SAM riboswitch aptamer (S box leader): a 104-nucleotide sequence from a Clostridia bacterium. The match comes from Rfam's covariance-model search (87 bits). Lineage of the source: Bacteria > Bacillati > Bacillota > Clostridia. Pairs were carried over by alignment from the consensus structure, which is taken from published work.

RNA sequence: UCCUUAUCAAGAGAGGUGGAGGGGCUGUGCCCGAUGAAACCCGGCAACCUGGCGUAAGCCGAAGGUGCCAAUUCCUGCAAAGCGAUUGCUUUGGCAGAUAAGGU
Numbered sequence: 001u002c003c004u005u006a007u008c009a010a011g012a013g014a015g016g017u018g019g020a021g022g023g024g025c026u027g028u029g030c031c032c033g034a035u036g037a038a039a040c041c042c043g044g045c046a047a048c049c050u051g052g053c054g055u056a057a058g059c060c061g062a063a064g065g066u067g068c069c070a071a072u073u074c075c076u077g078c079a080a081a082g083c084g085a086u087u088g089c090u091u092u093g094g095c096a097g098a099u100a101a102g103g104u
Stems, first nucleotide, its partner, number of pairs: 002103007013042001015041003021032003026077002029074001043069004048065002050061004073096001078093006

Its family is annotated with regulation of gene expression in the Gene Ontology.